[Rfam]
This 123-nucleotide RNA from Ictidomys tridecemlineatus belongs to the Rfam family "Small nucleolar RNA SNORD22". It scores 68 bits against the family's covariance model. The family's consensus secondary structure was predicted with PFOLD.
RNA sequence: UGCCAGUAAGAACAGACAUCUUGUCUUAACCCCCUGCUCUAGUCCCAGAACCAGUAAUGGUGAAUCCACUGUAGCUGGAAGAGAGGAUGGAAACUUGGUUCCAUGAGGUCCAGCAAAUGGCAA
Number, nucleotide and partner (000 for none) at each position: 001u122002g121003c120004c119005a000006g000007u000008a000009a000010g000011a000012a000013c000014a000015g000016a000017c000018a000019u000020c000021u000022u000023g000024u000025c000026u000027u000028a000029a000030c000031c000032c000033c000034c000035u000036g000037c000038u000039c000040u000041a000042g000043u000044c000045c000046c000047a000048g000049a000050a000051c000052c000053a000054g000055u000056a000057a000058u000059g000060g000061u000062g000063a000064a000065u000066c000067c000068a000069c000070u000071g000072u000073a000074g000075c000076u000077g000078g000079a000080a000081g000082a000083g000084a000085g000086g000087a000088u000089g000090g000091a000092a000093a000094c000095u000096u000097g000098g000099u000100u000101c000102c000103a000104u000105g000106a000107g000108g000109u000110c000111c000112a000113g000114c000115a000116a000117a000118u000119g004120g003121c002122a001123a000